[Rfam]
RNA sequence: CCAUUGCCUGGCGCAGCCAACCUCGACUUGACGGGGUGGUUCGUGGCUGGCUUCAGCGGGGGGGACAUUUAUCACAGCGUGUCCCGGGCUCGACCCCGCAUGUUCCUCUGGUGCCUACUCCUACUUUCCGUGGGAGUAGGCAUCUUCCUGCUGCCUGCUCGGUAGACGGGUAGCUUA
Numbered sequence: 001c002c003a004u005u006g007c008c009u010g011g012c013g014c015a016g017c018c019a020a021c022c023u024c025g026a027c028u029u030g031a032c033g034g035g036g037u038g039g040u041u042c043g044u045g046g047c048u049g050g051c052u053u054c055a056g057c058g059g060g061g062g063g064g065a066c067a068u069u070u071a072u073c074a075c076a077g078c079g080u081g082u083c084c085c086g087g088g089c090u091c092g093a094c095c096c097c098g099c100a101u102g103u104u105c106c107u108c109u110g111g112u113g114c115c116u117a118c119u120c121c122u123a124c125u126u127u128c129c130g131u132g133g134g135a136g137u138a139g140g141c142a143u144c145u146u147c148c149u150g151c152u153g154c155c156u157g158c159u160c161g162g163u164a165g166a167c168g169g170g171u172a173g174c175u176u177a
Stems, first nucleotide, its partner, number of pairs: 006051003010047001012045002016041001018039001020037006056099006062085006112142013150174008159165001
Overview
Hepatitis C virus (HCV) cis-acting replication element (CRE): a 177-nucleotide RNA from Orthohepacivirus hominis. By type it is a cis-regulatory element. Rfam links the family to the GO term viral genome replication. The source organism's lineage runs through Viruses, Riboviria, Kitrinoviricota, Orthohepacivirus and Hepatitis C virus genotype 6. The literature on the family includes a 2016 paper in Mol Cell by Pirakitikulr et al., "The Coding Region of the HCV Genome Contains a Network of Regulatory RNA Structures".